Shown here is a 67-nucleotide sequence from Pipistrellus kuhlii, a member of the family "mir-9256 microRNA precursor family". The family has 8 seed sequences and 31,772 matches in Rfam 15.1.
RNA sequence: AAAUACACUGAGUGGCCAGAUUAUUAUGCAUUCAGAGACCAUAAGGAUCUGGCCACUCAGUGUAUGU
Numbered sequence: 001a002a003a004u005a006c007a008c009u010g011a012g013u014g015g016c017c018a019g020a021u022u023a024u025u026a027u028g029c030a031u032u033c034a035g036a037g038a039c040c041a042u043a044a045g046g047a048u049c050u051g052g053c054c055a056c057u058c059a060g061u062g063u064a065u066g067u
Stems, first nucleotide, its partner, number of pairs: 004064014019049004024044005